Overview
A member of the RNA family "terC RNA" from Agrobacterium bohemicum, 60 nucleotides long. The match comes from Rfam's covariance-model search (59 bits). By type it is a cis-regulatory element.
[Rfam]
Nucleotides: 060
Stems, first nucleotide, its partner, number of pairs: 006054007022043008
Number, partner (000 for none) and nucleotide at each position: 001000c002000c003000g004000c005000u006054g007053g008052u009051c010050c011049g012048g013000g014000c015000c016000c017000c018000u019000c020000u021000g022043g023042u024041g025040g026039a027038a028037g029036u030000u031000u032000c033000g034000g035000u036029g037028c038027u039026u040025u041024c042023a043022c044000g045000a046000u047000g048012u049011c050010g051009g052008a053007c054006c055000u056000u057000u058000u059000c060000c